RNA sequence: UAUAGCCUUUGGGGCAAGGUGAAAAAGAGCAAUCUUUUAAUUCCUGACCGGCGGUAAAGUCCGCAAGCCGUAAGGUUGACUCGGUGAAACUCCGGGACCGACAGUAUAGUCUGGAUGAGAAAAGGCAUUC
Numbered sequence: 001u002a003u004a005g006c007c008u009u010u011g012g013g014g015c016a017a018g019g020u021g022a023a024a025a026a027g028a029g030c031a032a033u034c035u036u037u038u039a040a041u042u043c044c045u046g047a048c049c050g051g052c053g054g055u056a057a058a059g060u061c062c063g064c065a066a067g068c069c070g071u072a073a074g075g076u077u078g079a080c081u082c083g084g085u086g087a088a089a090c091u092c093c094g095g096g097a098c099c100g101a102c103a104g105u106a107u108a109g110u111c112u113g114g115a116u117g118a119g120a121a122a123a124g125g126c127a128u129u130c
Base pairs, nucleotide, nucleotide: 005126006125007124008123009122010121017045018044019043047110048109049100050099051064052063053062054061059098060097067076068075069074080096081095082094083093084092102113103112104111
A member of the RNA family "FMN riboswitch aptamer (RFN element)" from Anaerospora hongkongensis, 130 nucleotides long. The base pairs follow the family's consensus structure, which is taken from published work. Taxonomically the source falls in Anaerospora (Bacteria, Bacillati, Selenomonadales, Sporomusaceae). About the family: The RFN element is a highly conserved domain that is found frequently in the 5'-untranslated regions of prokaryotic mRNAs that encode for flavin mononucleotide (FMN) biosynthesis and transport proteins.